[Rfam]
RNA sequence: GGAUAUGACGAAAUGGCAAUAAUGUUUUGUGACACCCAGUCUGAUCUUCGUGAUUGAUCUGCCAUAUUUUCUGAUCC
Dot-bracket structure: (((..........(((((.........................................)))))..........)))
The record is a 77-nucleotide RNA, which matches "Small nucleolar RNA snoR4a" in Rfam.
A reference for the family is Brown et al. (2001), "Multiple snoRNA gene clusters from Arabidopsis", RNA.
Rfam's curators put it in the seed alignment.
It is annotated as a C/D-box small nucleolar RNA.
Rfam links the family to the GO terms RNA processing and nucleolus.
The family's consensus secondary structure was predicted with WAR.